[Rfam]
mir-27 microRNA precursor family: a 78-nucleotide RNA from Cyprinus carpio.
Gene Ontology terms of the family: miRNA-mediated post-transcriptional gene silencing and RISC complex.
The source organism's lineage runs through Eukaryota, Eumetazoa, Craniata, Cypriniphysae and Cyprinus.
RNA sequence: AGCGGGUGCAGAGCUUAGCUGAUUGGUGAACAUGCACGCUUUGUUUUUUGUUCACAGUGGCUAAGUUCUUCACCUGAA
Numbered sequence: 001a002g003c004g005g006g007u008g009c010a011g012a013g014c015u016u017a018g019c020u021g022a023u024u025g026g027u028g029a030a031c032a033u034g035c036a037c038g039c040u041u042u043g044u045u046u047u048u049u050g051u052u053c054a055c056a057g058u059g060g061c062u063a064a065g066u067u068c069u070u071c072a073c074c075u076g077a078a
Base pairs, nucleotide, nucleotide: 011068012067013066014065015064016063017062018061019060020059026055027054028053029052030051031050032049